[Rfam]
Shown here is a 54-nucleotide RNA sequence from a Nocardioidaceae bacterium, a member of the family "L31-Actinobacteria ribosomal protein leader". The family's RNA type in Rfam is cis-regulatory leader.
RNA sequence: UUGGCUCCGGUUCACGCCCUCGUCCCCGACUUGGGGAGUGGCGACCCGGCGGCC
Numbered sequence: 001u002u003g004g005c006u007c008c009g010g011u012u013c014a015c016g017c018c019c020u021c022g023u024c025c026c027c028g029a030c031u032u033g034g035g036g037a038g039u040g041g042c043g044a045c046c047c048g049g050c051g052g053c054c
Stems, first nucleotide, its partner, number of pairs: 003054003007049004015043004019038003